[Rfam]
RNA sequence: UCGCCGCUCAUUGGGGAGUAGCCGCUCCGCUCGAUGUCCCGCGCCCCCGGCGCGCAUCGUGACGGAGGCGUCCGUCAACAGACUUGGCCGUUCGGCCAUGGCGGACGCAGCCACGCUGGCCU
Numbered sequence: 001u002c003g004c005c006g007c008u009c010a011u012u013g014g015g016g017a018g019u020a021g022c023c024g025c026u027c028c029g030c031u032c033g034a035u036g037u038c039c040c041g042c043g044c045c046c047c048c049g050g051c052g053c054g055c056a057u058c059g060u061g062a063c064g065g066a067g068g069c070g071u072c073c074g075u076c077a078a079c080a081g082a083c084u085u086g087g088c089c090g091u092u093c094g095g096c097c098a099u100g101g102c103g104g105a106c107g108c109a110g111c112c113a114c115g116c117u118g119g120c121c122u
Base pairs, nucleotide, nucleotide: 026066027065028064068108069107070106071105072104073103074102075101076100077099085098086097087096088095089094
The record is a 122-nucleotide RNA from Burkholderia seminalis, which matches "Manganese Mn2+ riboswitch aptamer (yybP-ykoY)" in Rfam. It scores 66 bits against the family's covariance model. Rfam 15.1 lists 1,126 matches to the family in 1,062 species. Rfam describes the family as follows. This RNA was originally discovered in E. coli during a large scale screen and was named SraF. The family was later found to exist upstream of related families of protein genes in many bacteria, including the the yybP and ykoK genes in B. subtilis. The organism belongs to Burkholderia cepacia complex, within Bacteria. Its family is annotated with manganese ion binding in the Gene Ontology.